This 162-nucleotide RNA from Propionispira arboris belongs to the Rfam family "c-di-AMP riboswitch aptamer (ydaO/yuaA leader)". Taxonomically the source falls in Propionispira (Bacteria, Bacillati, Negativicutes, Selenomonadales).
RNA sequence: AGGAUAAAUAAGCCGAAUCUAACUCAGGAACGGGGAAACCAAUUUGUGUUUUGGGGUGAAUUUUGUUGCUUUCAUAAGGAGUUAUGAAUAUAACAGCAAGGGUGGUCUUCUUCUCUACCCUAACCCGUCAGCUAACCUCGUAGGCUAAUUAAGAGAGGAGUG
Dot-bracket structure: ..........((((...(((......)))((((((....((..........))(((......((((((......................))))))...((((.............))))...))).........)))))).))))................